[Rfam]
RNA sequence: UAGGGUUGUAAGGAGGCCACAACAGAAGAGCUCAUGACAUGGCCUGUCAGAUUCCAACUAAUCUUCACAUUCUGCU
Numbered sequence: 001u002a003g004g005g006u007u008g009u010a011a012g013g014a015g016g017c018c019a020c021a022a023c024a025g026a027a028g029a030g031c032u033c034a035u036g037a038c039a040u041g042g043c044c045u046g047u048c049a050g051a052u053u054c055c056a057a058c059u060a061a062u063c064u065u066c067a068c069a070u071u072c073u074g075c076u
Base pairs, nucleotide, nucleotide: 015044016043017042018041021076023074024073025072026071027070028040030038049064050063051062052061053060